A member of the RNA family "Bacterial large subunit ribosomal RNA" from Methylobrevis albus, 249 nucleotides of a longer RNA.
[Rfam]
RNA sequence: GGAGUAUUGAGAGGAUCUGUCCCUAGUACGAGAGGACCGGGAUGGACGCACCUCUGGUGGACCUGUUGUGGCGCCAGCCGCAUUGCAGGGUAGCUAAGUGCGGACUAGAUAACCGCUGAAGGCAUCUAAGCGGGAAACUAACCUCAAAACGAGUCCUCCCUAUCAGAGCCGUGGUAGACCACCACGUCGAUAGGCCGGGUGUGGAAGCAUGGCAACAUGUGAAGCUUACCGGUACUAAUAGCUCGACCG
Numbered sequence: 001g002g003a004g005u006a007u008u009g010a011g012a013g014g015a016u017c018u019g020u021c022c023c024u025a026g027u028a029c030g031a032g033a034g035g036a037c038c039g040g041g042a043u044g045g046a047c048g049c050a051c052c053u054c055u056g057g058u059g060g061a062c063c064u065g066u067u068g069u070g071g072c073g074c075c076a077g078c079c080g081c082a083u084u085g086c087a088g089g090g091u092a093g094c095u096a097a098g099u100g101c102g103g104a105c106u107a108g109a110u111a112a113c114c115g116c117u118g119a120a121g122g123c124a125u126c127u128a129a130g131c132g133g134g135a136a137a138c139u140a141a142c143c144u145c146a147a148a149a150c151g152a153g154u155c156c157u158c159c160c161u162a163u164c165a166g167a168g169c170c171g172u173g174g175u176a177g178a179c180c181a182c183c184a185c186g187u188c189g190a191u192a193g194g195c196c197g198g199g200u201g202u203g204g205a206a207g208c209a210u211g212g213c214a215a216c217a218u219g220u221g222a223a224g225c226u227u228a229c230c231g232g233u234a235c236u237a238a239u240a241g242c243u244c245g246a247c248c249g
Base pairs, nucleotide, nucleotide: 001159002158003157004156006154007153008152011145012144013143014142017045018044019043020042021041022040023039047102048101049100050099051098055096056095057094062089063088064087065086066085067082068081069080070079071078072077106140107139108138113133114132115131116130117129163246166244167243168242169241170186171185172184173183174182191237192236193235194233195232196231197230198229199227201225207220208219209218210217211216